This 103-nucleotide RNA sequence from Sorghum bicolor belongs to the Rfam family "MIR5565 microRNA precursor family". Lineage of the source: Eukaryota > Streptophytina > Mesangiospermae > Andropogoneae > Sorghum. The family's consensus secondary structure was predicted with RNAalifold. The sequence is in the family's curated seed alignment. Rfam 15.1 lists 3,346 matches to the family in 5 species.
RNA sequence: GUAGUCGGAUUCGCAUCAAUCCACAUGUGUUGGUGUGGAUUGGAGUGAAACUUGAAUUAAAUUCCACCCCAAUCCACUACACAUGUGGAUUGAGGUGAAUCCG
Numbered sequence: 001g002u003a004g005u006c007g008g009a010u011u012c013g014c015a016u017c018a019a020u021c022c023a024c025a026u027g028u029g030u031u032g033g034u035g036u037g038g039a040u041u042g043g044a045g046u047g048a049a050a051c052u053u054g055a056a057u058u059a060a061a062u063u064c065c066a067c068c069c070c071a072a073u074c075c076a077c078u079a080c081a082c083a084u085g086u087g088g089a090u091u092g093a094g095g096u097g098a099a100u101c102c103g
Base pairs, nucleotide, nucleotide: 006103007102008101009100010099011098012097013096014095016093017092018091019090020089021088022087023086024085025084026083027082028081029080030079035077036076037075038074039073040072041071042070043069045067046066047065